[Rfam]
Annotation: Rfam assigns this 46-nucleotide sequence from Propithecus coquereli to the family "U7 small nuclear RNA".
RNA sequence: AGAAUUUGUCUAGCAGGUUUUCUGGUUUUCACCAGAAGACACCCCU
Numbered sequence: 001a002g003a004a005u006u007u008g009u010c011u012a013g014c015a016g017g018u019u020u021u022c023u024g025g026u027u028u029u030c031a032c033c034a035g036a037a038g039a040c041a042c043c044c045c046u
Base pairs, nucleotide, nucleotide: 016043017042018041019038020037021036022035023034024033025032026031
The base pairs follow the family's consensus structure, which was predicted with PFOLD.
It scores 36 bits against the family's covariance model.